[Rfam]
Nucleotides: 112
Base pairs, nucleotide, nucleotide: 003038005036006035007034008033009032015030016029017028018027019026045067046066047065048064049063050062051061052060070107071106072105074103075102076101077100078099079098080097081096082095083094084093085092
Number, partner (000 for none) and nucleotide at each position: 001000u002000u003038g004000u005036c006035c007034u008033u009032u010000a011000a012000a013000a014000g015030c016029a017028g018027u019026c020000c021000c022000g023000u024000g025000a026019g027018g028017c029016u030015g031000g032009a033008a034007a035006g036005g037000u038003u039000a040000c041000g042000g043000u044000a045067u046066g047065u048064a049063c050062a051061c052060g053000c054000a055000g056000g057000a058000u059000a060052c061051g062050u063049g064048u065047a066046c067045a068000c069000a070107a071106a072105a073000a074103c075102c076101c077100c078099u079098u080097u081096u082095c083094u084093g085092c086000c087000c088000u089000u090000a091000u092085g093084c094083g095082g096081a097080a098079a099078a100077g101076g102075g103074g104000c105072u106071u107070u108000u109000u110000g111000u112000a